[Rfam]
RNA sequence: UGGCAAGAUGUGUAUUUGCUAUACCGCCACAAGUGACGGCACAGCAAAUACUAGGUAACUUAUUCGCCUUCGGCUCAACGAUCUUGCCCUUGCAGGGA
Dot-bracket structure: .((((((((..((((((.((...(((.((....)).)))...)).)))))).......(......(((...))).....)))))))))..........
RNA: traJ-II RNA
Organism: Thiothrix unzii